RNA sequence: CAGCAUCGCUAGGGGUCCUGCGCGACGGUCGACAAGAUGAUCCAUAUCCUUGAAAGGAUAGGAUAAUCGUUAAAGAUUGUUGCGCUGGUGAGAAACACCCUUGGAACCUGACCCGGAUAAUACCGGCGUAGGGAAGCGCAACUUGCUGUAG
Numbered sequence: 001c002a003g004c005a006u007c008g009c010u011a012g013g014g015g016u017c018c019u020g021c022g023c024g025a026c027g028g029u030c031g032a033c034a035a036g037a038u039g040a041u042c043c044a045u046a047u048c049c050u051u052g053a054a055a056g057g058a059u060a061g062g063a064u065a066a067u068c069g070u071u072a073a074a075g076a077u078u079g080u081u082g083c084g085c086u087g088g089u090g091a092g093a094a095a096c097a098c099c100c101u102u103g104g105a106a107c108c109u110g111a112c113c114c115g116g117a118u119a120a121u122a123c124c125g126g127c128g129u130a131g132g133g134a135a136g137c138g139c140a141a142c143u144u145g146c147u148g149u150a151g
Stems, first nucleotide, its partner, number of pairs: 007138004011101004016095001017088002020085011107132004113126004
RNA: TPP riboswitch aptamer (THI element)